[Rfam]
Rfam assigns this 178-nucleotide sequence to the family "malK-I RNA". The sequence is in the family's curated seed alignment. The family's RNA type in Rfam is cis-regulatory element.
RNA sequence: UUCAAUGACGGGACGCCACUCCACGCAAUGGUUUUCCGUACAUUCAAGAAGGAGGAAGAAGUUCCGCAGGCUCGCGGUGCGGCAGUGUGGAGACCUGUCGUAAUGCGGUUCGCAUCAGCGUAUGCGACGCGAGACAGCCCGGAUAGCUUCCCGGCUGUCAGAGCAGGAGUUUAUGUCU
Numbered sequence: 001u002u003c004a005a006u007g008a009c010g011g012g013a014c015g016c017c018a019c020u021c022c023a024c025g026c027a028a029u030g031g032u033u034u035u036c037c038g039u040a041c042a043u044u045c046a047a048g049a050a051g052g053a054g055g056a057a058g059a060a061g062u063u064c065c066g067c068a069g070g071c072u073c074g075c076g077g078u079g080c081g082g083c084a085g086u087g088u089g090g091a092g093a094c095c096u097g098u099c100g101u102a103a104u105g106c107g108g109u110u111c112g113c114a115u116c117a118g119c120g121u122a123u124g125c126g127a128c129g130c131g132a133g134a135c136a137g138c139c140c141g142g143a144u145a146g147c148u149u150c151c152c153g154g155c156u157g158u159c160a161g162a163g164c165a166g167g168a169g170u171u172u173a174u175g176u177c178u
Stems, first nucleotide, its partner, number of pairs: 008039006015032004064077004070164004078102008087094002105130003110127004133159007